The family of this 49-nucleotide RNA sequence from Saccharothrix coeruleofusca is "L31-Actinobacteria ribosomal protein leader". Rfam classes the family as a cis-regulatory leader. A reference for the family is Eckert and Weinberg (2020), "Discovery of 20 novel ribosomal leader candidates in bacteria and archaea", BMC Microbiol.
[Rfam]
RNA sequence: CCGGCUCCGGUUCACCCCCGCGUUCACCUCCGCGGAGGACCCGGCGGCC
Numbered sequence: 001c002c003g004g005c006u007c008c009g010g011u012u013c014a015c016c017c018c019c020g021c022g023u024u025c026a027c028c029u030c031c032g033c034g035g036a037g038g039a040c041c042c043g044g045c046g047g048c049c
Stems, first nucleotide, its partner, number of pairs: 003049003007044004015038002018035005